Rfam assigns this 165-nucleotide RNA from Danionella cerebrum to the family "U1 spliceosomal RNA". It is annotated as a spliceosomal small nuclear RNA. Its family is annotated with pre-mRNA 5'-splice site binding, U1 snRNP and mRNA 5'-splice site recognition in the Gene Ontology.

[Rfam]
RNA sequence: AUACUUACCUGGCAGGGGAGAAACCAUGAUCAAGCAGGUGGUUCACCCAGGGUGAGGCCUAACCAUUGCACUGAAGGUUUGGUUGACCUCUGCGAAUUCCCCAAAUGUGGGAAUCUCGACUGCAUAAUUUCUGGUAGUGGGGGACUGCGUUCGCGCUCUCCCCUU
Numbered sequence: 001a002u003a004c005u006u007a008c009c010u011g012g013c014a015g016g017g018g019a020g021a022a023a024c025c026a027u028g029a030u031c032a033a034g035c036a037g038g039u040g041g042u043u044c045a046c047c048c049a050g051g052g053u054g055a056g057g058c059c060u061a062a063c064c065a066u067u068g069c070a071c072u073g074a075a076g077g078u079u080u081g082g083u084u085g086a087c088c089u090c091u092g093c094g095a096a097u098u099c100c101c102c103a104a105a106u107g108u109g110g111g112a113a114u115c116u117c118g119a120c121u122g123c124a125u126a127a128u129u130u131c132u133g134g135u136a137g138u139g140g141g142g143g144a145c146u147g148c149g150u151u152c153g154c155g156c157u158c159u160c161c162c163c164u165u
Base pairs, nucleotide, nucleotide: 012123013122014121015120016048017047018046020044021043023042024041025040026039027038049091050090051089052088054087056084057083058082061079062078063077064076093118094117095116096114097113098112100110101109139164140163141162142161143160144159147156148155149154
Background: About the family: U1 is a small nuclear RNA (snRNA) component of the spliceosome (involved in pre-mRNA splicing). Its 5' end forms complementary base pairs with the 5' splice junction, thus defining the 5' donor site of an intron. There are significant differences in sequence and secondary structure between metazoan and yeast U1 snRNAs, the latter being much longer (568 nucleotides as compared to 164 nucleotides in human). Nevertheless, secondary structure predictions suggest that all U1 snRNAs share a 'common core' consisting of helices I, II, the proximal region of III, and IV. This family does not contain the larger yeast sequences. For this family Rfam cites "The uRNA database" (Zwieb, Nucleic Acids Res, 1997). A search with the family's covariance model found it, with a score of 156 bits.